Rfam assigns this 165-nucleotide RNA from Clarias magur to the family "Small nucleolar RNA SNORD97".
The family has 20 seed sequences and 639 matches in Rfam 15.1.
For this family Rfam cites "Identification of 13 novel human modification guide RNAs" (Vitali et al., Nucleic Acids Res, 2003).
NCBI's taxonomy places the organism under Eukaryota, Craniata, Characiphysae, Siluriformes, Clarias.
It scores 45 bits against the family's covariance model.
[Rfam]
RNA sequence: UGACCCAGUGAUGAGAGAAAACAGCGCAUAGAGGGAAGUCCAGGAGACGGGGGUGUGGUGUUCGUUCUUUGCUCUUUCCUUUAUUUUUCUUUCUUUCUUUCCUCCUCUCUAAGCCCCUCCCACUUCUGUCCCUAUGAGCGGUAAGAUUAUGAGAUCUGAGGGUCA
Numbered sequence: 001u002g003a004c005c006c007a008g009u010g011a012u013g014a015g016a017g018a019a020a021a022c023a024g025c026g027c028a029u030a031g032a033g034g035g036a037a038g039u040c041c042a043g044g045a046g047a048c049g050g051g052g053g054u055g056u057g058g059u060g061u062u063c064g065u066u067c068u069u070u071g072c073u074c075u076u077u078c079c080u081u082u083a084u085u086u087u088u089c090u091u092u093c094u095u096u097c098u099u100u101c102c103u104c105c106u107c108u109c110u111a112a113g114c115c116c117c118u119c120c121c122a123c124u125u126c127u128g129u130c131c132c133u134a135u136g137a138g139c140g141g142u143a144a145g146a147u148u149a150u151g152a153g154a155u156c157u158g159a160g161g162g163u164c165a
Base pairs, nucleotide, nucleotide: 001165002164003163004162005161006160032080033079034078035077036076037075